[Rfam]
RNA: Small nucleolar RNA SNORD35
Organism: Cyanistes caeruleus
RNA sequence: UGCAAAUGAUGCCAAUCUCACGAUGGUCUGCUGAGCCCACCGGGGGCCUGAUGACUCUGCCACAUGGCUUUACUGAUGCAGGUGA
Numbered sequence: 001u002g003c004a005a006a007u008g009a010u011g012c013c014a015a016u017c018u019c020a021c022g023a024u025g026g027u028c029u030g031c032u033g034a035g036c037c038c039a040c041c042g043g044g045g046g047c048c049u050g051a052u053g054a055c056u057c058u059g060c061c062a063c064a065u066g067g068c069u070u071u072a073c074u075g076a077u078g079c080a081g082g083u084g085a
Base pairs, nucleotide, nucleotide: 001080002079003078004077
Dot-bracket structure: ((((........................................................................)))).....